[Rfam]
RNA: mir-10 microRNA precursor family
Organism: Caenorhabditis auriculariae
RNA sequence: CGUCGUCCACCCGUAGAUCCGAACAUGUGUUGGUUUCUGCAACACAAGUUCAUCUAUAGGUAGACGACGU
Numbered sequence: 001c002g003u004c005g006u007c008c009a010c011c012c013g014u015a016g017a018u019c020c021g022a023a024c025a026u027g028u029g030u031u032g033g034u035u036u037c038u039g040c041a042a043c044a045c046a047a048g049u050u051c052a053u054c055u056a057u058a059g060g061u062a063g064a065c066g067a068c069g070u
Stems, first nucleotide, its partner, number of pairs: 002068006010060002015055004021051004026046004